[Rfam]
RNA sequence: ACCGGGCUUGGUAACGUUUGCCUGUAACCCAAGUGGGGUAUCAAAGUGGGUUGGAUUAUGAUUUGGUCGAGUUGGUUGGUCUGGUGGUGUGUAAUUUGACCUGCCUGUUCCAAGUCUUGAGUUGGUUCAAGUGGCUGCCCGUUCCAAGUCGAGAGUUGGUUCAAGUGGCUUGAGCGAAGGCUUUGGGUCUCUUGGAACCUAGAGAAAGGGGGCAAUGCGUUAGGCUGGCUUCACAGAGCUGCGAAAACUCCUCGCUUCCGACGGUGGAAGGAUAACAGGUCUCGGCUCUUCAGGCCCAUAUUGCCGACUAGUCCGACUCAAAUGGACACCCGCUUUU
Number, nucleotide and partner (000 for none) at each position: 001a039002c038003c000004g023005g022006g021007c020008u000009u000010g017011g000012u000013a000014a000015c000016g000017u010018u000019u000020g007021c006022c005023u004024g000025u000026a000027a000028c037029c036030c035031a000032a000033g000034u000035g030036g029037g028038g002039u001040a000041u000042c000043a336044a335045a334046g333047u332048g331049g330050g329051u328052u000053g327054g000055a000056u324057u000058a000059u320060g319061a000062u316063u315064u000065g313066g312067u000068c311069g000070a309071g308072u307073u306074g305075g304076u303077u000078g296079g295080u294081c293082u292083g291084g290085u000086g000087g000088u000089g288090u285091g000092u000093a000094a000095u000096u000097u000098g281099a280100c279101c278102u277103g276104c000105c271106u270107g000108u269109u268110c267111c266112a265113a000114g262115u261116c260117u000118u000119g257120a256121g255122u254123u000124g198125g000126u196127u195128c194129a193130a192131g191132u000133g189134g188135c187136u186137g000138c000139c000140c000141g000142u000143u000144c000145c000146a000147a000148g000149u000150c000151g000152a000153g000154a000155g000156u000157u000158g000159g000160u000161u000162c000163a000164a000165g000166u000167g000168g000169c000170u000171u000172g000173a000174g000175c000176g000177a000178a000179g000180g000181c000182u000183u000184u000185g000186g136187g135188u134189c133190u000191c131192u130193u129194g128195g127196a126197a000198c124199c204200u000201a000202g000203a000204g199205a000206a000207a252208g251209g250210g249211g248212g000213c000214a000215a000216u245217g000218c243219g242220u241221u000222a000223g000224g000225c236226u235227g234228g000229c000230u000231u000232c000233a000234c227235a226236g225237a000238g000239c000240u000241g220242c219243g218244a000245a216246a000247a000248c211249u210250c209251c208252u207253c000254g122255c121256u120257u119258c000259c000260g116261a115262c114263g000264g000265u112266g111267g110268a109269a108270g106271g105272a000273u000274a000275a000276c103277a102278g101279g100280u099281c098282u000283c000284g000285g090286c000287u000288c089289u000290u084291c083292a082293g081294g080295c079296c078297c000298a000299u000300a000301u000302u000303g076304c075305c074306g073307a072308c071309u070310a000311g068312u066313c065314c000315g063316a062317c000318u000319c060320a059321a000322a000323u000324g056325g000326a000327c053328a051329c050330c049331c048332g047333c046334u045335u044336u043337u000